RNA sequence: AGCCUGUGAUGAGUUUAAUCUUCUGACACCUCGUAUGAACGCUGCUGAGGCAGUAACUGUUUACAUGCAUUCUCUGAGGCCU
Numbered sequence: 001a002g003c004c005u006g007u008g009a010u011g012a013g014u015u016u017a018a019u020c021u022u023c024u025g026a027c028a029c030c031u032c033g034u035a036u037g038a039a040c041g042c043u044g045c046u047g048a049g050g051c052a053g054u055a056a057c058u059g060u061u062u063a064c065a066u067g068c069a070u071u072c073u074c075u076g077a078g079g080c081c082u
Stems, first nucleotide, its partner, number of pairs: 002080003041054005
Rfam assigns this 82-nucleotide RNA sequence from Conger conger to the family "Small nucleolar RNA SNORD60".
Pairs were carried over by alignment from the consensus structure, which was predicted with PFOLD.
The organism belongs to Conger, within Eukaryota.
The match comes from Rfam's covariance-model search (60 bits).